The family of this 87-nucleotide sequence from Papaver somniferum is "Small nucleolar RNA R11/Z151". For this family Rfam cites "Identification of 66 box C/D snoRNAs in Arabidopsis thaliana: extensive gene duplications generated multiple isoforms predicting new ribosomal RNA 2'-O-methylation sites" (Barneche et al., J Mol Biol, 2001). Rfam classes the family as a C/D-box small nucleolar RNA.
[Rfam]
RNA sequence: UGGCUAACGAUGAUAAAACUCUAUAUCUUAGCGGAUUUCAGUGAGAUUUAUCAAUGAUCUGAAUAUUACGUACAUACACUGAAGCCU
Numbered sequence: 001u002g003g004c005u006a007a008c009g010a011u012g013a014u015a016a017a018a019c020u021c022u023a024u025a026u027c028u029u030a031g032c033g034g035a036u037u038u039c040a041g042u043g044a045g046a047u048u049u050a051u052c053a054a055u056g057a058u059c060u061g062a063a064u065a066u067u068a069c070g071u072a073c074a075u076a077c078a079c080u081g082a083a084g085c086c087u
Stems, first nucleotide, its partner, number of pairs: 002086004